[Rfam]
RNA: c-di-AMP riboswitch aptamer (ydaO/yuaA leader)
Organism: Streptomyces ipomoeae
RNA sequence: AGCCGCAAACCGACCCGUCCACGGCAGGAGCGGGGGACCCACAGGUAGUACCGCCUGUUCCGGUCUCCGGAACGGCUAGGGGUAAAGCCGUGCGCAAGCACGGCCGGGCAUCUCCAGUCCGCACCCGACAGCUCACCUCGCAGGCGCCGGAGAGGAAUU
Numbered sequence: 001a002g003c004c005g006c007a008a009a010c011c012g013a014c015c016c017g018u019c020c021a022c023g024g025c026a027g028g029a030g031c032g033g034g035g036g037a038c039c040c041a042c043a044g045g046u047a048g049u050a051c052c053g054c055c056u057g058u059u060c061c062g063g064u065c066u067c068c069g070g071a072a073c074g075g076c077u078a079g080g081g082g083u084a085a086a087g088c089c090g091u092g093c094g095c096a097a098g099c100a101c102g103g104c105c106g107g108g109c110a111u112c113u114c115c116a117g118u119c120c121g122c123a124c125c126c127g128a129c130a131g132c133u134c135a136c137c138u139c140g141c142a143g144g145c146g147c148c149g150g151a152g153a154g155g156a157a158u159u
Base pairs, nucleotide, nucleotide: 002145003144004143010028011027030141031140032139033138034137035136040079080126081125082124088103089102090101091100106120107119108118109117